The family of this 101-nucleotide RNA from Oceanobacillus halophilus is "Purine riboswitch aptamer". From the family's description: Riboswitches are metabolite binding domains within certain messenger RNAs that serve as precision sensors for their corresponding targets. Allosteric rearrangement of mRNA structure is mediated by ligand binding, and this results in modulation of gene expression. Its Rfam clan is "Purine riboswitches". It scores 77 bits against the family's covariance model.
RNA sequence: UUAAACUGAAUAGAUUUUUCUUGUAUAAGUCCAAUAAUACGGAUUGGACGUUUCUACCAGCUACCAUAAAUAGCUUGUCUACAAGGGAUGAAAUAGAAUAG
Numbered sequence: 001u002u003a004a005a006c007u008g009a010a011u012a013g014a015u016u017u018u019u020c021u022u023g024u025a026u027a028a029g030u031c032c033a034a035u036a037a038u039a040c041g042g043a044u045u046g047g048a049c050g051u052u053u054c055u056a057c058c059a060g061c062u063a064c065c066a067u068a069a070a071u072a073g074c075u076u077g078u079c080u081a082c083a084a085g086g087g088a089u090g091a092a093a094u095a096g097a098a099u100a101g
Stems, first nucleotide, its partner, number of pairs: 018087008029049007058077002060074004